[Rfam]
Rfam assigns this 85-nucleotide RNA from Enterococcus sp. NBRC 3427 to the family "tRNA".
RNA sequence: GCCGGCGUGGCGGAAUUGGCAGACGCGCUGGACUCAAAAUCCAGUGUCCGUUGAGGACGUGCCGGUUCGACCCCGGCCGCCGGUA
Numbered sequence: 001g002c003c004g005g006c007g008u009g010g011c012g013g014a015a016u017u018g019g020c021a022g023a024c025g026c027g028c029u030g031g032a033c034u035c036a037a038a039a040u041c042c043a044g045u046g047u048c049c050g051u052u053g054a055g056g057a058c059g060u061g062c063c064g065g066u067u068c069g070a071c072c073c074c075g076g077c078c079g080c081c082g083g084u085a
Base pairs, nucleotide, nucleotide: 001084002083003082004081005080006079007078010026011025012024028044029043030042031041032040061077062076063075064074065073
Record summary
A search with the family's covariance model found it, with a score of 54 bits. The family's consensus secondary structure is taken from published work. Rfam classes the family as a transfer RNA. From the family's description: Transfer RNA (tRNA) molecules are approximately 80 nucleotides in length. NCBI's taxonomy places the organism under Bacteria, Bacillati, Bacillota, Enterococcaceae, Enterococcus.